[Rfam]
tRNA: a 71-nucleotide sequence. The family's RNA type in Rfam is transfer RNA.

RNA sequence: UAGAAAAUAAUAUAGAGGGAGUAUGAAGAGUUUUGAUCUCUUCUGUGUAGGUUCGAUUCCUACUUUUCUAG
Number, nucleotide and partner (000 for none) at each position: 001u070002a069003g068004a067005a066006a065007a064008u000009a000010a024011u023012a022013u021014a000015g000016a000017g000018g000019g000020a000021g013022u012023a011024u010025g000026a042027a041028g040029a039030g038031u000032u000033u000034u000035g000036a000037u000038c030039u029040c028041u027042u026043c000044u000045g000046u000047g063048u062049a061050g060051g059052u000053u000054c000055g000056a000057u000058u000059c051060c050061u049062a048063c047064u007065u006066u005067u004068c003069u002070a001071g000